This 113-nucleotide RNA from Mesorhabditis belari belongs to the Rfam family "U5 spliceosomal RNA". On this family, see Zwieb, Nucleic Acids Res 1997: "The uRNA database". It scores 78 bits against the family's covariance model.
[Rfam]
RNA sequence: UCUGGUUCGUCUGCAUUUGACCGAGAAAAUCUUUCGCCUUUUACUAAAGAUUUCCGUGCAGACGAACAAUUAUAAUUAACGAAUUUUUGGAAGUCCCUUGCAAAAGCGGGACA
Number, nucleotide and partner (000 for none) at each position: 001u000002c000003u000004g000005g067006u066007u065008c064009g063010u062011c061012u060013g059014c058015a057016u000017u000018u000019g000020a000021c000022c000023g000024a000025g000026a000027a053028a052029a051030u050031c049032u048033u047034u046035c000036g000037c000038c000039u000040u000041u000042u000043a000044c000045u000046a034047a033048a032049g031050a030051u029052u028053u027054c000055c000056g000057u015058g014059c013060a012061g011062a010063c009064g008065a007066a006067c005068a000069a000070u000071u000072a000073u000074a000075a000076u000077u000078a000079a000080c000081g000082a000083a000084u000085u000086u000087u000088u000089g000090g000091a000092a000093g112094u111095c110096c109097c108098u000099u000100g000101c000102a000103a000104a000105a000106g000107c000108g097109g096110g095111a094112c093113a000
NCBI's taxonomy places the organism under Eukaryota, Eumetazoa, Nematoda, Rhabditoidea, Mesorhabditis. By type it is a spliceosomal small nuclear RNA.